[Rfam]
RNA sequence: GCGGAUGUGGCGGAAUUGGUAGACGCGCAGGGUUCAGGUCUCUGUGGGGUAAAACCCGUGGGAGUUCAAGUCUCCCCAUCCGCA
Numbered sequence: 001g002c003g004g005a006u007g008u009g010g011c012g013g014a015a016u017u018g019g020u021a022g023a024c025g026c027g028c029a030g031g032g033u034u035c036a037g038g039u040c041u042c043u044g045u046g047g048g049g050u051a052a053a054a055c056c057c058g059u060g061g062g063a064g065u066u067c068a069a070g071u072c073u074c075c076c077c078a079u080c081c082g083c084a
Stems, first nucleotide, its partner, number of pairs: 001083007010026003028044005060076005
Shown here is an 84-nucleotide sequence from Thiomicrospira sp. WB1, a member of the family "tRNA". The base pairs follow the family's consensus structure, which is taken from published work. By type it is a transfer RNA. A search with the family's covariance model found it, with a score of 52 bits.